RNA sequence: GCCGAGCUUAGUAACGUGGGCUUGUGACCUGAGUGGGGGCAUUAAAGUGGCGGGACCGUUGGUCCAGUCCAGAUGGCUGGACUUUGGGUUGGCUAAAUUCUGGCUUGCCCAAUCCAAGCCGGUCGUUGAAACAAGGGACUUGAGCGAAAGCUUGGGUUUCAUGGCUCCUAAAGUGGAGGGUACCGCGUUAGGUGGCUUCACAGAGCAGCGACCACCUCCCGCUUCCGGCAGUGGAUGGAUAAUGAGUCGGUGCCAUGCGGGUCCACAUAGCUUGAUGGGCUGUUCAAACUGGACCGCCACAUUU
Dot-bracket structure: ((((((((((......)))))))....(((....))))))...((.(((((((..(((((.(.(.((.(((...((((((((((...(.(((.((....((((((((.((.(((((.(((((..((.((..((.(((((((((((....))))))))))).))..))(....).(((((......(((....((......)).....)))....))))).))..)))))..)))))))....))))))))))))))..))))))....))))...))).))).)..)).))).))))))).)).

Rfam assigns this 304-nucleotide sequence from Manihot esculenta to the family "Plant signal recognition particle RNA". The base pairs follow the family's consensus structure, which is taken from published work.